[Rfam]
RNA sequence: UUCCCCCGGUGCCUGGGACCCGAGUUUGUGGGAUAAGGCAUCACCUCCCUGUUGUACUGGCCCGGACCUCGUGUCCGGGCUUUUUU
Numbered sequence: 001u002u003c004c005c006c007c008g009g010u011g012c013c014u015g016g017g018a019c020c021c022g023a024g025u026u027u028g029u030g031g032g033a034u035a036a037g038g039c040a041u042c043a044c045c046u047c048c049c050u051g052u053u054g055u056a057c058u059g060g061c062c063c064g065g066a067c068c069u070c071g072u073g074u075c076c077g078g079g080c081u082u083u084u085u086u
Stems, first nucleotide, its partner, number of pairs: 008042007060080008

Overview: Rfam assigns this 86-nucleotide RNA sequence from Jannaschia sp. CCS1 to the family "Singlet oxygen resistance RNA X". The source organism's lineage runs through Bacteria, Pseudomonadati, Pseudomonadota, Alphaproteobacteria and Jannaschia. A reference for the family is Berghoff et al. (2009), "Photooxidative stress-induced and abundant small RNAs in Rhodobacter sphaeroides", Mol Microbiol. It scores 57 bits against the family's covariance model. By type it is a small RNA. Pairs were carried over by alignment from the consensus structure. Its family is annotated with response to photooxidative stress in the Gene Ontology. SorX (RSs2461)like SorY is a singlet oxygen induced sRNA that counteracts oxidative stress by targeting mRNA for a transporter in Rhodobacter.